A member of the RNA family "Plastid-rps12 3UTR RNA" from Apium graveolens, 96 nucleotides long. Plastid rpl20 is a non-coding RNA (ncRNA) recognised in plastids. The family has 1,299 seed sequences and 1,710 matches in Rfam 15.1. The organism belongs to Apium, within Eukaryota.

[Rfam]
RNA sequence: GGUUUUCAUUGGUGCAAAUCCAAUCACCUCUAUUUAAGAUGAGAAGUAAUUUUCCAUUGGUAGAAAAUGGUUAUUCAUUAAGUGAGAAAAUCCUAC
Numbered sequence: 001g002g003u004u005u006u007c008a009u010u011g012g013u014g015c016a017a018a019u020c021c022a023a024u025c026a027c028c029u030c031u032a033u034u035u036a037a038g039a040u041g042a043g044a045a046g047u048a049a050u051u052u053u054c055c056a057u058u059g060g061u062a063g064a065a066a067a068u069g070g071u072u073a074u075u076c077a078u079u080a081a082g083u084g085a086g087a088a089a090a091u092c093c094u095a096c
Base pairs, nucleotide, nucleotide: 009023010022011021012020052086053085055084056078057077059075060074061073062072063071